[Rfam]
mir-1397 microRNA precursor family: an 84-nucleotide RNA sequence from Geotrypetes seraphini.

RNA sequence: UGCGACGAGUGCACUGCAUUGCGACGGGUUACAUCACUGAAAGUGAUGUGAUGGAACCCAACGCAACAUGAUGCAAGCGCCGUU
Numbered sequence: 001u002g003c004g005a006c007g008a009g010u011g012c013a014c015u016g017c018a019u020u021g022c023g024a025c026g027g028g029u030u031a032c033a034u035c036a037c038u039g040a041a042a043g044u045g046a047u048g049u050g051a052u053g054g055a056a057c058c059c060a061a062c063g064c065a066a067c068a069u070g071a072u073g074c075a076a077g078c079g080c081c082g083u084u
Base pairs, nucleotide, nucleotide: 002083003082004081006079007078010075011074012073013072015068016067020065021064022063023062026059027058028057029056030055032053033052034051035050036049038048039047
Gene Ontology terms of the family: RISC complex and miRNA-mediated post-transcriptional gene silencing. Rfam 15.1 lists 386 matches to the family in 381 species. The family's consensus secondary structure was predicted with RNAalifold.